[Rfam]
RNA: FMN riboswitch aptamer (RFN element)
RNA sequence: AUGUUUCUUCGGGGCAGGGUGUAAUUCCCGACCGACGGUGACAAGUCUAACUUGAAGUCCGUGACCCGCAAUAGUUUGCGGUUGAUCUAGUGAAAAUCUAGAACCGACAGUUAAAGUCUGGAUGGGAGAAGAAAAAC
Dot-bracket structure: ...(((((((......(((.......))).[[((((((..................[[))))...((............))....(((((.......)))))]])).(((.....]]))).......)))))))...